[Rfam]
RNA sequence: GGCUGUUCUGAAGGUAGUGAGUUAUCUCAAUUGAUUGUUCACCAUGAGUUACAGUUGAACUCCUUGUUCUACUCUUUCCCCUCACCCUUCUCACUACUACUGCACUUGGCUAGUCUUUU
Numbered sequence: 001g002g003c004u005g006u007u008c009u010g011a012a013g014g015u016a017g018u019g020a021g022u023u024a025u026c027u028c029a030a031u032u033g034a035u036u037g038u039u040c041a042c043c044a045u046g047a048g049u050u051a052c053a054g055u056u057g058a059a060c061u062c063c064u065u066g067u068u069c070u071a072c073u074c075u076u077u078c079c080c081c082u083c084a085c086c087c088u089u090c091u092c093a094c095u096a097c098u099a100c101u102g103c104a105c106u107u108g109g110c111u112a113g114u115c116u117u118u119u
Base pairs, nucleotide, nucleotide: 001115002114003113004112005111007109008108010107011106014103015102016095017094018093019092020091021090030077033074034073
Y RNA: a 119-nucleotide sequence from Macaca mulatta.
The source organism's lineage runs through Eukaryota, Chordata, Teleostomi, Cercopithecinae and Macaca.
On this family, see Van Horn et al., RNA 1995: "Caenorhabditis elegans embryos contain only one major species of Ro RNP".
Y RNAs are components of the Ro ribonucleoprotein particle (Ro RNP), in association with Ro60 and La proteins. The Y RNAs and Ro60 and La proteins are well conserved, but the function of the Ro RNP is not known.
The family's RNA type in Rfam is non-coding RNA gene.